Rfam assigns this 102-nucleotide sequence from Bacillus smithii to the family "Purine riboswitch aptamer". Rfam's curators write: Riboswitches are metabolite binding domains within certain messenger RNAs that serve as precision sensors for their corresponding targets. Allosteric rearrangement of mRNA structure is mediated by ligand binding, and this results in modulation of gene expression. A class of riboswitches that selectively recognises guanine and becomes saturated at concentrations as low as 5 nM. In Bacillus subtilis, this mRNA motif is located on at least five separate transcriptional units that together encode 17 genes that are mostly involved in purine transport and purine nucleotide biosynthesis. The organism belongs to Bacillus smithii, within Bacteria. The base pairs follow the family's consensus structure, which is taken from published work.
[Rfam]
RNA sequence: AAAUUUCAAAAUGCAUUCACUCAUAUAAUGGCAAGAAUAUGGCUUGCCAGUCUCUACCGGACUGCCGUAAACAGUCUGACUAUGAGUGAGCAAUGAGGCGGA
Numbered sequence: 001a002a003a004u005u006u007c008a009a010a011a012u013g014c015a016u017u018c019a020c021u022c023a024u025a026u027a028a029u030g031g032c033a034a035g036a037a038u039a040u041g042g043c044u045u046g047c048c049a050g051u052c053u054c055u056a057c058c059g060g061a062c063u064g065c066c067g068u069a070a071a072c073a074g075u076c077u078g079a080c081u082a083u084g085a086g087u088g089a090g091c092a093a094u095g096a097g098g099c100g101g102a
Base pairs, nucleotide, nucleotide: 018088019087020086021085022084023083024082025081029049030048031047032046033045034044035043058078059077060076061075062074063073064072